[Rfam]
Rfam assigns this 125-nucleotide RNA from Hymenochirus boettgeri to the family "U4atac minor spliceosomal RNA". The match comes from Rfam's covariance-model search (85 bits). Rfam classes the family as a spliceosomal small nuclear RNA.
RNA sequence: ACCGUCCUUCUCUUGGGGGAGCAGCUGUUUAAGGAACGUCUAGUGAAAGCAGCGCUGCUAACGCCGCCAGCAACACACACGCUCCCCUACUGUGCACACGGUAGAGAGGAGCAAUUUUUGGAAGC
Numbered sequence: 001a002c003c004g005u006c007c008u009u010c011u012c013u014u015g016g017g018g019g020a021g022c023a024g025c026u027g028u029u030u031a032a033g034g035a036a037c038g039u040c041u042a043g044u045g046a047a048a049g050c051a052g053c054g055c056u057g058c059u060a061a062c063g064c065c066g067c068c069a070g071c072a073a074c075a076c077a078c079a080c081g082c083u084c085c086c087c088u089a090c091u092g093u094g095c096a097c098a099c100g101g102u103a104g105a106g107a108g109g110a111g112c113a114a115u116u117u118u119u120g121g122a123a124g125c
Stems, first nucleotide, its partner, number of pairs: 005019005021058003024053007036044002081112005088103006

Pairs were carried over by alignment from the consensus structure, which is taken from published work. U4atac is an essential component of the minor U12-type spliceosome complex which is required for removal of the rarer class of eukaryotic introns (AT-AC, U12-type).